[Rfam]
A member of the RNA family "terC RNA" from Palleronia abyssalis, 59 nucleotides long. The family's RNA type in Rfam is cis-regulatory element.
RNA sequence: UCGGCGUUCCGGGCCCCUCUGGCGCGUUGGUCGGUCACGCGUGAUGUCGGAAUCUCAGG
Numbered sequence: 001u002c003g004g005c006g007u008u009c010c011g012g013g014c015c016c017c018u019c020u021g022g023c024g025c026g027u028u029g030g031u032c033g034g035u036c037a038c039g040c041g042u043g044a045u046g047u048c049g050g051a052a053u054c055u056c057a058g059g
Stems, first nucleotide, its partner, number of pairs: 006053007022042006029035001
Dot-bracket structure: .....(((((((.........((((((.(.....).))))))....)))))))......